A member of the RNA family "DUF3800-V RNA", 100 nucleotides long. Rfam classes the family as a small RNA. The sequence is in the family's curated seed alignment.
RNA sequence: AGAAGUAUGUAAUAAUAGCUUAGAAAAUGCUGCGGUAUUUCCCUCGAAAUAUUCGAGACUUCAAAGUCGCAGAUAAACCACUUUCUAAGACACUACUUCU
Numbered sequence: 001a002g003a004a005g006u007a008u009g010u011a012a013u014a015a016u017a018g019c020u021u022a023g024a025a026a027a028u029g030c031u032g033c034g035g036u037a038u039u040u041c042c043c044u045c046g047a048a049a050u051a052u053u054c055g056a057g058a059c060u061u062c063a064a065a066g067u068c069g070c071a072g073a074u075a076a077a078c079c080a081c082u083u084u085c086u087a088a089g090a091c092a093c094u095a096c097u098u099c100u
Base pairs, nucleotide, nucleotide: 001100002099003098004097005096006095009093010092023085024084025083026082028080029079030072031071032070033069034068035067036066043057044056045055046054047053